[Rfam]
RNA: SAM-I/IV (S-adenosyl methionine) riboswitch aptamer
RNA sequence: UCUCAGCAUCACGAGUUGAGCCGACGCUCAACGCCAACCUGCCUCCCGGCAAGGUGGCGCCUUCCUUGCGACGGGAUGCGGCCGGUCCGGCAACCAACGGGGACUUC
Numbered sequence: 001u002c003u004c005a006g007c008a009u010c011a012c013g014a015g016u017u018g019a020g021c022c023g024a025c026g027c028u029c030a031a032c033g034c035c036a037a038c039c040u041g042c043c044u045c046c047c048g049g050c051a052a053g054g055u056g057g058c059g060c061c062u063u064c065c066u067u068g069c070g071a072c073g074g075g076a077u078g079c080g081g082c083c084g085g086u087c088c089g090g091c092a093a094c095c096a097a098c099g100g101g102g103a104c105u106u107c
Stems, first nucleotide, its partner, number of pairs: 006079005015032001017030005033058003038054003041050003046102002081091004